[Rfam]
RNA sequence: GGCGGGCCCCUGCGCAUUGCGGCAUGGUUUACCUGGUCAGGUCGGGAACGAAGCAGCCAAAGCCGUUCACCGCAAGUGCCGCAGAUCAGGCUCGCCUCU
Numbered sequence: 001g002g003c004g005g006g007c008c009c010c011u012g013c014g015c016a017u018u019g020c021g022g023c024a025u026g027g028u029u030u031a032c033c034u035g036g037u038c039a040g041g042u043c044g045g046g047a048a049c050g051a052a053g054c055a056g057c058c059a060a061a062g063c064c065g066u067u068c069a070c071c072g073c074a075a076g077u078g079c080c081g082c083a084g085a086u087c088a089g090g091c092u093c094g095c096c097u098c099u
Stems, first nucleotide, its partner, number of pairs: 004093005010084005015076001017075006024066006034059004042051003